Shown here is an 84-nucleotide sequence from Zootermopsis nevadensis, a member of the family "Mammalian CPEB3 ribozyme".
[Rfam]
RNA sequence: UUUUGCAAAAAGGGGGUCACAGCAGGAGCGUUAAAUGUCGCGGUCCCGGUCGAACUCAUAUACUGAUGGGUCGUGAAUUCUGCU
Numbered sequence: 001u002u003u004u005g006c007a008a009a010a011a012g013g014g015g016g017u018c019a020c021a022g023c024a025g026g027a028g029c030g031u032u033a034a035a036u037g038u039c040g041c042g043g044u045c046c047c048g049g050u051c052g053a054a055c056u057c058a059u060a061u062a063c064u065g066a067u068g069g070g071u072c073g074u075g076a077a078u079u080c081u082g083c084u
Stems, first nucleotide, its partner, number of pairs: 013047006021084007028041003051073003055069002
Dot-bracket structure: ............[[[[[[..((((((((((........)))]]]]]]...(((.((...........)).)))....)))))))
The organism belongs to Zootermopsis, within Eukaryota.